[Rfam]
RNA: EGFOA RNA
RNA sequence: CUUUUCCCAGAACACACCGUCGUAGUAGCCUUUUGGCUAGGUGGCAUAACAGAGUUAUUGAGAAUAUACGUGGUAAAGCUACACCUGGGCACGUUGAAUGUUAUG
Numbered sequence: 001c002u003u004u005u006c007c008c009a010g011a012a013c014a015c016a017c018c019g020u021c022g023u024a025g026u027a028g029c030c031u032u033u034u035g036g037c038u039a040g041g042u043g044g045c046a047u048a049a050c051a052g053a054g055u056u057a058u059u060g061a062g063a064a065u066a067u068a069c070g071u072g073g074u075a076a077a078g079c080u081a082c083a084c085c086u087g088g089g090c091a092c093g094u095u096g097a098a099u100g101u102u103a104u105g
Stems, first nucleotide, its partner, number of pairs: 006089005019084002022082004026039005045105007056066003068094005